[Rfam]
RNA sequence: UGUUAAAAAUUUUAUCUAUUUUUUCAGUUAAAAACUAGUGUAGCUGAUAGAAUAACCAGAUAAUUACACAUAAUGUAUCAUGUGUACCUUAUGCUAACGUACAUAGAUCAAUUUUUAAUAGUAGAAAUAAAUAGAAUUUUUAAAA
Number, nucleotide and partner (000 for none) at each position: 001u000002g000003u143004u142005a141006a140007a139008a138009a137010u136011u135012u134013u133014a132015u131016c000017u000018a128019u127020u126021u125022u124023u123024u000025c121026a000027g000028u118029u117030a116031a115032a114033a113034a000035c000036u000037a000038g000039u000040g000041u000042a000043g000044c000045u000046g000047a000048u000049a000050g000051a000052a000053u000054a000055a000056c000057c000058a000059g000060a000061u000062a000063a000064u000065u000066a000067c000068a000069c000070a000071u000072a000073a000074u000075g000076u000077a000078u000079c000080a000081u000082g000083u000084g000085u000086a000087c000088c000089u000090u000091a000092u000093g000094c000095u000096a000097a000098c000099g000100u000101a000102c000103a000104u000105a000106g000107a000108u000109c000110a000111a000112u000113u033114u032115u031116u030117a029118a028119u000120a000121g025122u000123a023124g022125a021126a020127a019128u018129a000130a000131a015132u014133a013134g012135a011136a010137u009138u008139u007140u006141u005142a004143a003144a000145a000
RNA: MIR7502 microRNA precursor family